[Rfam]
RNA sequence: UGCCAUGCUUUUCCACAGCUUUCUUGAACUUCUCUCCACUUUUUUUCUUCAUAAUUUUGCCUGCUGCAGCUUGCUUUGCUUUGGUGCAGGAGAGCAGCAAUAUAGCUUGAAAAUAUUGCAUAGAAGUUCAAGAAAGCUGUGGGAUAAUAUGGCAA
Numbered sequence: 001u002g003c004c005a006u007g008c009u010u011u012u013c014c015a016c017a018g019c020u021u022u023c024u025u026g027a028a029c030u031u032c033u034c035u036c037c038a039c040u041u042u043u044u045u046u047c048u049u050c051a052u053a054a055u056u057u058u059g060c061c062u063g064c065u066g067c068a069g070c071u072u073g074c075u076u077u078g079c080u081u082u083g084g085u086g087c088a089g090g091a092g093a094g095c096a097g098c099a100a101u102a103u104a105g106c107u108u109g110a111a112a113a114u115a116u117u118g119c120a121u122a123g124a125a126g127u128u129c130a131a132g133a134a135a136g137c138u139g140u141g142g143g144a145u146a147a148u149a150u151g152g153c154a155a
Stems, first nucleotide, its partner, number of pairs: 003152005013142003017138006024131004029126005
Dot-bracket structure: ..(((((.....(((.((((((.((((.(((((........................................................................................))))).)))).)))))).))).....)))))...
The family of this 155-nucleotide RNA sequence from Corchorus olitorius is "MIR396 microRNA precursor family".